[Rfam]
RNA: Small nucleolar RNA U83B
RNA sequence: UGAGUUUUGGGAUGAGGCCGUGGAAUAAGUGCUGGGCACAGUGCUUGAACCAGACUGUGGAAAUACUAAUUUAUUUUACUUUUACUAUUUAUUCA
Numbered sequence: 001u002g003a004g005u006u007u008u009g010g011g012a013u014g015a016g017g018c019c020g021u022g023g024a025a026u027a028a029g030u031g032c033u034g035g036g037c038a039c040a041g042u043g044c045u046u047g048a049a050c051c052a053g054a055c056u057g058u059g060g061a062a063a064u065a066c067u068a069a070u071u072u073a074u075u076u077u078a079c080u081u082u083u084a085c086u087a088u089u090u091a092u093u094c095a
Base pairs, nucleotide, nucleotide: 001095002094003093004092005091